Rfam assigns this 184-nucleotide sequence from Vagococcus salmoninarum to the family "Enterococcus sRNA 2410". The family has 3 seed sequences and 74 matches in Rfam 15.1. A search with the family's covariance model found it, with a score of 66 bits. From the family's description: Produced as 2 transcripts on Northern blot.
Nucleotides: 184
Base pairs, nucleotide, nucleotide: 001073002072003071004070005069006068011063012062013061014060015059016058019048020047021046022045023044024043025042027040028039029038030037051057052056077149079147080146081145082144083143097129098128099127100126101125102124104122105121106120
Number, partner (000 for none) and nucleotide at each position: 001073u002072u003071a004070g005069c006068u007000u008000c009000u010000u011063u012062a013061g014060a015059u016058a017000g018000u019048g020047u021046u022045u023044g024043u025042a026000g027040u028039c029038a030037u031000g032000a033000g034000c035000u036000c037030a038029u039028g040027g041000g042025u043024g044023c045022a046021a047020a048019c049000a050000a051057u052056g053000u054000u055000u056052u057051g058016u059015a060014u061013c062012u063011a064000u065000g066000u067000u068006g069005g070004c071003u072002a073001a074000a075000g076000c077149a078000u079147u080146u081145u082144g083143u084000c085000g086000u087000a088000c089000c090000g091000a092000c093000a094000a095000a096000a097129a098128g099127c100126c101125a102124c103000g104122u105121a106120g107000g108000a109000u110000u111000a112000a113000u114000u115000a116000a117000a118000a119000u120106c121105u122104a123000a124102g125101u126100g127099g128098c129097u130000a131000u132000u133000u134000c135000a136000a137000u138000a139000a140000c141000g142000u143083a144082u145081g146080a147079g148000u149077u150000u151000u152000a153000c154000a155000u156000u157000a158000g159000a160000c161000u162000u163000a164000c165000a166000c167000a168000g169000c170000c171000a172000u173000u174000u175000a176000g177000a178000u179000a180000a181000u182000c183000a184000u